[Rfam]
Shown here is a 136-nucleotide sequence from Alligator mississippiensis, a member of the family "Small nucleolar RNA U109". A search with the family's covariance model found it, with a score of 104 bits. The base pairs follow the family's consensus structure, which was predicted with WAR. Taxonomically the source falls in Alligator (Eukaryota, Craniata, Dipnotetrapodomorpha, Archelosauria). It is annotated as an H/ACA-box small nucleolar RNA.
RNA sequence: CUGCAUGAUGGAAGCCAUCAUUCUUUUUCUUCAACGGAGAAUGAAUAUAUUACUUUCAUGCUACAGAAAAUAAGAAGUUAUCAGGGCCACCAGUCUUGGAGUACAGGCUGAGUGGUAGUAUAUUUCUCUUACAUUA
Number, nucleotide and partner (000 for none) at each position: 001c000002u000003g061004c060005a059006u058007g057008a056009u000010g000011g000012a000013a000014g000015c000016c000017a000018u000019c043020a042021u041022u040023c039024u038025u037026u036027u000028u000029c000030u000031u000032c000033a000034a000035c000036g026037g025038a024039g023040a022041a021042u020043g019044a000045a000046u000047a000048u000049a000050u000051u000052a000053c000054u000055u000056u008057c007058a006059u005060g004061c003062u000063a000064c000065a000066g000067a000068a000069a000070a000071u000072a000073a000074g129075a000076a127077g126078u000079u000080a000081u000082c000083a000084g000085g000086g116087c115088c000089a000090c112091c110092a109093g108094u107095c106096u105097u000098g000099g000100a000101g000102u000103a000104c000105a096106g095107g094108c093109u092110g091111a000112g090113u000114g000115g087116u086117a000118g000119u000120a000121u000122a000123u000124u000125u000126c077127u076128c000129u074130u000131a000132c000133a000134u000135u000136a000